[Rfam]
RNA sequence: UGAUACCAGGGUCAAAAGGUCAGAAGUUCGACGCAAGCUUGCUUGCAGGAGAAUUUUUGACCUUGGGACCCGCCAAAAACAUGAGUAAGUAGCCAUUUUUCAAAGAAAAAUGAGCGAAUUACGAAUGUUUUUAAGAAUUGCGGGAGCACGCAGUGCAGAGCAAUUCGGUAUCA
Numbered sequence: 001u002g003a004u005a006c007c008a009g010g011g012u013c014a015a016a017a018g019g020u021c022a023g024a025a026g027u028u029c030g031a032c033g034c035a036a037g038c039u040u041g042c043u044u045g046c047a048g049g050a051g052a053a054u055u056u057u058u059g060a061c062c063u064u065g066g067g068a069c070c071c072g073c074c075a076a077a078a079a080c081a082u083g084a085g086u087a088a089g090u091a092g093c094c095a096u097u098u099u100u101c102a103a104a105g106a107a108a109a110a111u112g113a114g115c116g117a118a119u120u121a122c123g124a125a126u127g128u129u130u131u132u133a134a135g136a137a138u139u140g141c142g143g144g145a146g147c148a149c150g151c152a153g154u155g156c157a158g159a160g161c162a163a164u165u166c167g168g169u170a171u172c173a
Stems, first nucleotide, its partner, number of pairs: 001173007010070004017063013032048001033046005075132008085122004092115002094112008135166007146156004

Record summary
Shown here is a 173-nucleotide RNA, a member of the family "Clostridiales-1 RNA". It is annotated as a small RNA.